[Rfam]
RNA sequence: ACAGCAUCAAUGAUGUGCCCCUCAGCGUUAUCCUUGCACUGCGAUUGCUCAUGAAGAAAACCAUGGGAAAAUAUACUCUGAGAUGCUA
Dot-bracket structure: ..((((((.........................................................................)))))).
RNA: Small nucleolar RNA snoR26
Organism: Spirodela intermedia